The family of this 98-nucleotide RNA sequence from Salvia splendens is "Small nucleolar RNA R64/Z200 family". The match comes from Rfam's covariance-model search (69 bits).
[Rfam]
RNA sequence: CAUAUUUAUGUGAUAACCCUAUAACUAAAUUCACAUAUCAGACUUCAGAGAUUAUUUAUAAUCAAUGAGAAGACUAUUUCAUGAUUCCUGAGCAUAUC
Numbered sequence: 001c002a003u004a005u006u007u008a009u010g011u012g013a014u015a016a017c018c019c020u021a022u023a024a025c026u027a028a029a030u031u032c033a034c035a036u037a038u039c040a041g042a043c044u045u046c047a048g049a050g051a052u053u054a055u056u057u058a059u060a061a062u063c064a065a066u067g068a069g070a071a072g073a074c075u076a077u078u079u080c081a082u083g084a085u086u087c088c089u090g091a092g093c094a095u096a097u098c
Stems, first nucleotide, its partner, number of pairs: 002097004007092001050063004

Source information: A reference for the family is Marker et al. (2002), "Experimental RNomics: identification of 140 candidates for small non-messenger RNAs in the plant Arabidopsis thaliana", Curr Biol. The family has 14 seed sequences and 748 matches in Rfam 15.1. Rfam classes the family as a C/D-box small nucleolar RNA.